Notes
Shown here is a 192-nucleotide RNA sequence from Staphylococcus aureus, a member of the family "Staphylococcus sRNA sau-53". The family's RNA type in Rfam is small RNA.
[Rfam]
RNA sequence: CAGCCAGGAUUAGAAAUGAGCUUCGUUCCAUUGUUAUUAAACGAUUGCCAUUCUGAAAUGCUAUAGAUAGCGUGAUUUAAGUCGUCUUGUGAUGCAGCAGUUUCUUUGUAAUAUGCUUCAUAUAUUUCACGGUUUUUAAUUCUGAAUGCACCAGAUAAAUCAAUAACAUGAAUUCCUUUUUCUACUAAAGGA
Number, nucleotide and partner (000 for none) at each position: 001c000002a000003g000004c000005c000006a000007g029008g028009a027010u000011u000012a000013g024014a023015a022016a000017u000018g000019a000020g000021c000022u015023u014024c013025g000026u000027u009028c008029c007030a000031u000032u168033g167034u166035u165036a164037u163038u162039a000040a000041a000042c000043g000044a156045u155046u154047g151048c000049c148050a147051u146052u145053c000054u000055g142056a141057a140058a000059u099060g098061c097062u096063a000064u094065a093066g000067a090068u089069a088070g087071c000072g085073u084074g083075a082076u081077u000078u000079a000080a000081g076082u075083c074084g073085u072086c000087u070088u069089g068090u067091g000092a000093u065094g064095c000096a062097g061098c060099a059100g000101u000102u000103u000104c000105u000106u132107u131108g130109u129110a126111a125112u124113a123114u122115g121116c000117u000118u000119c000120a000121u115122a114123u113124a112125u111126u110127u000128c000129a109130c108131g107132g106133u000134u000135u000136u000137u000138a000139a000140u057141u056142c055143u000144g000145a052146a051147u050148g049149c000150a000151c047152c000153a000154g046155a045156u044157a000158a000159a000160u000161c000162a038163a037164u036165a035166a034167c033168a032169u000170g000171a000172a000173u000174u000175c191176c190177u189178u188179u187180u000181u000182c000183u000184a000185c000186u000187a179188a178189a177190g176191g175192a000